[Rfam]
RNA sequence: CCUCUUUAACAGAAACCAAAACAUGCCUAUAUAGAUCCUGUCGGGCAACCGACUAUGGCAGUAAACGGUGCGUGAAAUAGGCAUUAUGGACCCGGGGGCGGUACCCGGCGCCUCCACCAUCAGGGAUCGGCUUCAUGAAAUGGCUUUGUGGCCAUGAAUUGAUCAAAAGUACGAUCCUUGCUGAUGGGGGCGAAAUAGGCUCGACAUGUGCUGAAAGACGAUACUUUCUGCCCGGAAUGGUUCCGCCGUUGAUGGGCCAUAUUCACAAAUGCCAAUGAUAAUGAGGCAUUUGCUGUUGCAGCGUAACAAAAACCUAGCGGUUUAAGUUACAGAGCAAUCAGCACGGUUUAUGGGGUGCGCCGGGUAACAGAAGCAUUCCCG
Numbered sequence: 001c002c003u004c005u006u007u008a009a010c011a012g013a014a015a016c017c018a019a020a021a022c023a024u025g026c027c028u029a030u031a032u033a034g035a036u037c038c039u040g041u042c043g044g045g046c047a048a049c050c051g052a053c054u055a056u057g058g059c060a061g062u063a064a065a066c067g068g069u070g071c072g073u074g075a076a077a078u079a080g081g082c083a084u085u086a087u088g089g090a091c092c093c094g095g096g097g098g099c100g101g102u103a104c105c106c107g108g109c110g111c112c113u114c115c116a117c118c119a120u121c122a123g124g125g126a127u128c129g130g131c132u133u134c135a136u137g138a139a140a141u142g143g144c145u146u147u148g149u150g151g152c153c154a155u156g157a158a159u160u161g162a163u164c165a166a167a168a169g170u171a172c173g174a175u176c177c178u179u180g181c182u183g184a185u186g187g188g189g190g191c192g193a194a195a196u197a198g199g200c201u202c203g204a205c206a207u208g209u210g211c212u213g214a215a216a217g218a219c220g221a222u223a224c225u226u227u228c229u230g231c232c233c234g235g236a237a238u239g240g241u242u243c244c245g246c247c248g249u250u251g252a253u254g255g256g257c258c259a260u261a262u263u264c265a266c267a268a269a270u271g272c273c274a275a276u277g278a279u280a281a282u283g284a285g286g287c288a289u290u291u292g293c294u295g296u297u298g299c300a301g302c303g304u305a306a307c308a309a310a311a312a313c314c315u316a317g318c319g320g321u322u323u324a325a326g327u328u329a330c331a332g333a334g335c336a337a338u339c340a341g342c343a344c345g346g347u348u349u350a351u352g353g354g355g356u357g358c359g360c361c362g363g364g365u366a367a368c369a370g371a372a373g374c375a376u377u378c379c380c381g
Stems, first nucleotide, its partner, number of pairs: 040053005057232005067225003071220003082210003086207003092108005109192007233248003238259003242256003344362004352378003
Annotation:
Rfam assigns this 381-nucleotide RNA sequence from Iodidimonas nitroreducens to the family "Alphaproteobacteria transfer-messenger RNA". The family's consensus secondary structure is taken from published work. Rfam describes the family as follows. Bacterial tmRNA, also known as 10Sa RNA or SsrA, is named for its dual tRNA and mRNA-like properties. Its role is to liberate the mRNA from a stalled ribosome. Rfam links the family to the GO term RNA catabolic process. Lineage of the source: Bacteria > Alphaproteobacteria > Iodidimonadales > Iodidimonadaceae > Iodidimonas. The family's RNA type in Rfam is non-coding RNA gene.